Rfam assigns this 181-nucleotide RNA from Lacticaseibacillus paracasei to the family "Enterococcus sRNA B11".
[Rfam]
Nucleotides: 181
Stems, first nucleotide, its partner, number of pairs: 001133008009020004021035003049122010059073005075090006091105004096100001145176007
Number, partner (000 for none) and nucleotide at each position: 001133g002132g003131c004130a005129a006128c007127u008126g009020c010019c011018c012017u013000g014000g015000g016000a017012g018011g019010g020009g021035g022034g023033u024000g025000u026000g027000a028000c029000c030000g031000u032000g033023a034022u035021u036000g037000a038000u039000u040000u041000u042000c043000u044000a045000a046000a047000u048000c049122a050121g051120a052119u053118u054117g055116u056115c057114g058113c059073c060072c061071c062070g063069c064000u065000c066000a067000u068000u069063g070062u071061g072060g073059g074000a075090g076089u077088g078087g079086u080085a081000c082000u083000c084000c085080u086079g087078c088077u089076g090075c091105u092104c093103g094102a095000a096100c097000a098000u099000a100096g101000g102094u103093u104092g105091a106000a107000u108000g109000a110000u111000c112000g113058g114057c115056g116055a117054u118053a119052g120051u121050c122049u123000u124000u125000g126008c127007a128006g129005u130004u131003g132002c133001c134000u135000u136000c137000a138000a139000c140000c141000c142000a143000c144000a145176c146175g147174c148173c149172c150171g151170u152000c153000g154000u155000c156000c157000a158000c159000g160000a161000u162000u163000u164000a165000u166000c167000g168000c169000a170151g171150c172149g173148g174147g175146u176145g177000a178000a179000a180000a181000a

It is annotated as a small RNA. Lineage of the source: Bacteria > Bacilli > Lactobacillales > Lacticaseibacillus > Lacticaseibacillus paracasei. Rfam 15.1 lists 31 matches to the family in 28 species.